[Rfam]
RNA sequence: ACGCAUGAAAGGAGGUGAUCCGGAAGUGAUUUCUUACCGGACCAGCGAGGUGACUGCGGGCUGAGGCCUGCCGUCGCACUCUGUGCACCUCGGCAGGCCAGUCUGCCGAAGACCAACGCAGUCACCCGACCCGUGAGCCGCCGGUGAGUCCGGCCGGCUUCCGUCCGACCCAGGCGCCUGGGCGGACGGGACCAAGGCUCACGGGUCGUCUGCG
Numbered sequence: 001a002c003g004c005a006u007g008a009a010a011g012g013a014g015g016u017g018a019u020c021c022g023g024a025a026g027u028g029a030u031u032u033c034u035u036a037c038c039g040g041a042c043c044a045g046c047g048a049g050g051u052g053a054c055u056g057c058g059g060g061c062u063g064a065g066g067c068c069u070g071c072c073g074u075c076g077c078a079c080u081c082u083g084u085g086c087a088c089c090u091c092g093g094c095a096g097g098c099c100a101g102u103c104u105g106c107c108g109a110a111g112a113c114c115a116a117c118g119c120a121g122u123c124a125c126c127c128g129a130c131c132c133g134u135g136a137g138c139c140g141c142c143g144g145u146g147a148g149u150c151c152g153g154c155c156g157g158c159u160u161c162c163g164u165c166c167g168a169c170c171c172a173g174g175c176g177c178c179u180g181g182g183c184g185g186a187c188g189g190g191a192c193c194a195a196g197g198c199u200c201a202c203g204g205g206u207c208g209u210c211u212g213c214g
Stems, first nucleotide, its partner, number of pairs: 015057003019053001059107003063103002066098004071093003127208013140158006
About this RNA
The record is a 214-nucleotide RNA, which matches "Actinobacteria sRNA Ms_IGR-5" in Rfam. The match comes from Rfam's covariance-model search (76 bits). The base pairs follow the family's consensus structure. For this family Rfam cites "Identification of small RNAs in Mycobacterium smegmatis using heterologous Hfq" (Li et al., RNA, 2013).